Nucleotides: 071
Base pairs, nucleotide, nucleotide: 006066008064009063027046028045031040
Number, partner (000 for none) and nucleotide at each position: 001000u002000u003000g004000g005000c006066a007000c008064g009063a010000u011000g012000a013000u014000g015000a016000u017000u018000g019000a020000u021000u022000u023000a024000u025000u026000g027046u028045c029000a030000u031040a032000u033000g034000a035000u036000u037000u038000u039000u040031u041000a042000u043000g044000u045028g046027a047000u048000u049000a050000a051000a052000a053000a054000c055000c056000c057000u058000c059000c060000u061000a062000c063009u064008c065000a066006u067000u068000c069000u070000g071000a